This 97-nucleotide sequence from Corythaeola cristata belongs to the Rfam family "isrI Hfq binding RNA".
RNA sequence: AUAACUGGCGUCUGGCAUCUGACGCAGGGUGAUGACAUUUGCGACAACGGUGAAGCAGAAGUAAUCAGCGGGCCAUUGCCACCACCCUUGUGAGCAC
Numbered sequence: 001a002u003a004a005c006u007g008g009c010g011u012c013u014g015g016c017a018u019c020u021g022a023c024g025c026a027g028g029g030u031g032a033u034g035a036c037a038u039u040u041g042c043g044a045c046a047a048c049g050g051u052g053a054a055g056c057a058g059a060a061g062u063a064a065u066c067a068g069c070g071g072g073c074c075a076u077u078g079c080c081a082c083c084a085c086c087c088u089u090g091u092g093a094g095c096a097c
Base pairs, nucleotide, nucleotide: 007039008038010036011035012034016031018029019028020027041051042050

Source information
Taxonomically the source falls in Corythaeola (Eukaryota, Bilateria, Sauropsida, Sauria). A search with the family's covariance model found it, with a score of 57 bits.